Shown here is a 66-nucleotide sequence from Acinetobacter nectaris, a member of the family "Fluoride riboswitch aptamer (crcB RNA motif)". Rfam links the family to the GO terms positive regulation of gene expression and response to fluoride. Lineage of the source: Bacteria > Pseudomonadati > Pseudomonadota > Moraxellales > Acinetobacter nectaris. It scores 52 bits against the family's covariance model.
[Rfam]
RNA sequence: UGAGAUAUAGGAAAUGGCAUCUUCCUUUUAAAAACCGCCAAUAUGGCUAAUGAUGCCUACGUAACC
Numbered sequence: 001u002g003a004g005a006u007a008u009a010g011g012a013a014a015u016g017g018c019a020u021c022u023u024c025c026u027u028u029u030a031a032a033a034a035c036c037g038c039c040a041a042u043a044u045g046g047c048u049a050a051u052g053a054u055g056c057c058u059a060c061g062u063a064a065c066c
Base pairs, nucleotide, nucleotide: 010025011024012023013022016057017056018055019054020053021052037047038046039045